[Rfam]
RNA: mir-9193 microRNA precursor family
Organism: Cnephaeus nilssonii
RNA sequence: CGUGCACCGGAGGGGUCCCUCAGUCUGGCCUGCACCCUCUCGCAAUCCAGGACCCCUCGGGGGAUGUUGGAGAGCCAGUUUCAGCCCGAUACCUGCAGGCCAGGCUGAGGGACCCCACCAGUGCAUA
Numbered sequence: 001c002g003u004g005c006a007c008c009g010g011a012g013g014g015g016u017c018c019c020u021c022a023g024u025c026u027g028g029c030c031u032g033c034a035c036c037c038u039c040u041c042g043c044a045a046u047c048c049a050g051g052a053c054c055c056c057u058c059g060g061g062g063g064a065u066g067u068u069g070g071a072g073a074g075c076c077a078g079u080u081u082c083a084g085c086c087c088g089a090u091a092c093c094u095g096c097a098g099g100c101c102a103g104g105c106u107g108a109g110g111g112a113c114c115c116c117a118c119c120a121g122u123g124c125a126u127a
Stems, first nucleotide, its partner, number of pairs: 003125002006122001009119002012116014027101008